[Rfam]
RNA sequence: CGUCAAAAAAGAGCCCUAAAAUUGCGCGUUCGUGGUCGAUCGCGUAUACUUCUUGCGUUGACGUAACACAGUGUGUUUUGCGGAAACCAACCGCAAACCCUGAAAAAAACCUCGCUCCGGCGAGGUUUUUU
Numbered sequence: 001c002g003u004c005a006a007a008a009a010a011g012a013g014c015c016c017u018a019a020a021a022u023u024g025c026g027c028g029u030u031c032g033u034g035g036u037c038g039a040u041c042g043c044g045u046a047u048a049c050u051u052c053u054u055g056c057g058u059u060g061a062c063g064u065a066a067c068a069c070a071g072u073g074u075g076u077u078u079u080g081c082g083g084a085a086a087c088c089a090a091c092c093g094c095a096a097a098c099c100c101u102g103a104a105a106a107a108a109a110c111c112u113c114g115c116u117c118c119g120g121c122g123a124g125g126u127u128u129u130u131u
Base pairs, nucleotide, nucleotide: 002062003061004060005059006058013056019051020050023046024045025044026043027042028041030039031038032037071101075098076097077096079095080094081093082092083091105130106129107128108127109126110125111124112123113122114121115120
A member of the RNA family "istR Hfq binding RNA" from Enterobacteriaceae bacterium RIT714, 131 nucleotides long. Rfam links the family to the GO terms negative regulation of translation and mRNA binding. The organism belongs to Enterobacteriaceae, within Bacteria.